[Rfam]
RNA sequence: GAGUUGCCCAUGAUGUGAAUGGAGUAAAGCCCUCGGGACCUUCAUUUGCUGAUGAGGCACAACUC
Numbered sequence: 001g002a003g004u005u006g007c008c009c010a011u012g013a014u015g016u017g018a019a020u021g022g023a024g025u026a027a028a029g030c031c032c033u034c035g036g037g038a039c040c041u042u043c044a045u046u047u048g049c050u051g052a053u054g055a056g057g058c059a060c061a062a063c064u065c
Stems, first nucleotide, its partner, number of pairs: 001065005015049010030037002
The record is a 65-nucleotide RNA from Chrysochloris asiatica, which matches "Selenocysteine insertion sequence 1" in Rfam.
The family's consensus secondary structure is taken from published work.
The match comes from Rfam's covariance-model search (38 bits).
The family's RNA type in Rfam is cis-regulatory element.
NCBI's taxonomy places the organism under Eukaryota, Eumetazoa, Vertebrata, Dipnotetrapodomorpha, Chrysochloris.